[Rfam]
RNA sequence: CUUAAUAUUCCGGGAGAUAAAUAUCAGCCGAUUUUUGCCGGCGGUGUAAAUUAUUUUAGAGGAUAAAUCUCAAGAAUUCCUCAGGCAAAGCCACCGAAAUGGGUAA
Numbered sequence: 001c002u003u004a005a006u007a008u009u010c011c012g013g014g015a016g017a018u019a020a021a022u023a024u025c026a027g028c029c030g031a032u033u034u035u036u037g038c039c040g041g042c043g044g045u046g047u048a049a050a051u052u053a054u055u056u057u058a059g060a061g062g063a064u065a066a067a068u069c070u071c072a073a074g075a076a077u078u079c080c081u082c083a084g085g086c087a088a089a090g091c092c093a094c095c096g097a098a099a100u101g102g103g104u105a106a
Stems, first nucleotide, its partner, number of pairs: 006101004011096003020035002023032001037086003040082002044080001046078001051073002

The record is a 106-nucleotide RNA sequence from Desulfosporosinus acididurans, which matches "Glycine riboswitch aptamer" in Rfam. Gene Ontology term of the family: glycine biosynthetic process. It scores 32 bits against the family's covariance model.